[Rfam]
RNA: Fluoride riboswitch aptamer (crcB RNA motif)
Organism: Pseudomonas asplenii
RNA sequence: CGGCCUUCCGGAGAUGGCAUUCCUCCGUACCCAACCGCUGUGCUACUGCAGCUGAUGAUGCCUACAGACAC
Numbered sequence: 001c002g003g004c005c006u007u008c009c010g011g012a013g014a015u016g017g018c019a020u021u022c023c024u025c026c027g028u029a030c031c032c033a034a035c036c037g038c039u040g041u042g043c044u045a046c047u048g049c050a051g052c053u054g055a056u057g058a059u060g061c062c063u064a065c066a067g068a069c070a071c
Stems, first nucleotide, its partner, number of pairs: 010026004016062006037052004